c-di-GMP-I riboswitch aptamer: a 76-nucleotide sequence from Butyrivibrio fibrisolvens.
RNA sequence: CAAAAACAAAGGCAAAACAGACGAAAGUCUGUGACGCAAAACUACAGGGACUUUGAAAUGUCAGCCAGUUGCAUUU
Numbered sequence: 001c002a003a004a005a006a007c008a009a010a011g012g013c014a015a016a017a018c019a020g021a022c023g024a025a026a027g028u029c030u031g032u033g034a035c036g037c038a039a040a041a042c043u044a045c046a047g048g049g050a051c052u053u054u055g056a057a058a059u060g061u062c063a064g065c066c067a068g069u070u071g072c073a074u075u076u
Stems, first nucleotide, its partner, number of pairs: 012037002017032006040070004047066002049062003